[Rfam]
RNA sequence: UUGCAGGUUAAGUUACAAUACAGCUGUGAAGUGCUCUAUUGUCGUUCCCCCUGCAGAAAUAAACUCGUUUCAUACUAUCCCUGACUGUCCUGUCUUGUUGACUGACAGGGACGCUUGGUCACGAACAC
Numbered sequence: 001u002u003g004c005a006g007g008u009u010a011a012g013u014u015a016c017a018a019u020a021c022a023g024c025u026g027u028g029a030a031g032u033g034c035u036c037u038a039u040u041g042u043c044g045u046u047c048c049c050c051c052u053g054c055a056g057a058a059a060u061a062a063a064c065u066c067g068u069u070u071c072a073u074a075c076u077a078u079c080c081c082u083g084a085c086u087g088u089c090c091u092g093u094c095u096u097g098u099u100g101a102c103u104g105a106c107a108g109g110g111a112c113g114c115u116u117g118g119u120c121a122c123g124a125a126c127a128c
Stems, first nucleotide, its partner, number of pairs: 003054005015042006022035003080109004085104001087102002